The record is a 69-nucleotide sequence from Sinocyclocheilus grahami, which matches "mir-29 microRNA precursor family" in Rfam.
Rfam links the family to the GO terms gene silencing by miRNA and RISC complex.
NCBI's taxonomy places the organism under Eukaryota, Bilateria, Teleostomi, Otomorpha, Sinocyclocheilus.
Rfam 15.1 lists 3,328 matches to the family in 787 species.
About the family: This family represents the microRNA (miRNA) precursors mir-29.
A reference for the family is Ambros (2001), "microRNAs: tiny regulators with great potential", Cell.

RNA sequence: GCAUGACUGAUUUCCUCUGGUGUUCAGAGUGGACUGGGGUUUUCUAGCACCAUUUGAAAUCGGUCGUGC
Numbered sequence: 001g002c003a004u005g006a007c008u009g010a011u012u013u014c015c016u017c018u019g020g021u022g023u024u025c026a027g028a029g030u031g032g033a034c035u036g037g038g039g040u041u042u043u044c045u046a047g048c049a050c051c052a053u054u055u056g057a058a059a060u061c062g063g064u065c066g067u068g069c
Stems, first nucleotide, its partner, number of pairs: 001069004005064001007063008018052005026045003